[Rfam]
RNA sequence: CGUAUGAUGCUGCUGCCAGCCCGCGCGCCGACGUGACUGAAGCGGGCGGCCUGUGUCGGUCUGACACAGUACACAAUCAUAACCGGGUUUUU
Numbered sequence: 001c002g003u004a005u006g007a008u009g010c011u012g013c014u015g016c017c018a019g020c021c022c023g024c025g026c027g028c029c030g031a032c033g034u035g036a037c038u039g040a041a042g043c044g045g046g047c048g049g050c051c052u053g054u055g056u057c058g059g060u061c062u063g064a065c066a067c068a069g070u071a072c073a074c075a076a077u078c079a080u081a082a083c084c085g086g087g088u089u090u091u092u
Base pairs, nucleotide, nucleotide: 015050016049017048019047020046021045022044023043024042051069052068053067054066055065056064